RNA sequence: AAUAUUACUCUAACACAAGCACUGACAUGAUUCUUGAAUACAGUAAGUGCUGAUUGUUGGGGUAGUUUUG
Numbered sequence: 001a002a003u004a005u006u007a008c009u010c011u012a013a014c015a016c017a018a019g020c021a022c023u024g025a026c027a028u029g030a031u032u033c034u035u036g037a038a039u040a041c042a043g044u045a046a047g048u049g050c051u052g053a054u055u056g057u058u059g060g061g062g063u064a065g066u067u068u069u070g
Stems, first nucleotide, its partner, number of pairs: 004066008013057003018051006025044002